[Rfam]
RNA: pan motif
RNA sequence: AUCGAAGUAUCCUGUGUGAACUUCAGAUAACUAAAGAAAUAAGCUUUCAAAUUUUAUAUCGCUUGGAUUGCCAUAACCGAGACGAAUGC
Numbered sequence: 001a002u003c004g005a006a007g008u009a010u011c012c013u014g015u016g017u018g019a020a021c022u023u024c025a026g027a028u029a030a031c032u033a034a035a036g037a038a039a040u041a042a043g044c045u046u047u048c049a050a051a052u053u054u055u056a057u058a059u060c061g062c063u064u065g066g067a068u069u070g071c072c073a074u075a076a077c078c079g080a081g082a083c084g085a086a087u088g089c
Base pairs, nucleotide, nucleotide: 001028002027003026004024005023006022007021008020010019011018059085060084061083062081063080064079065078066077068076069075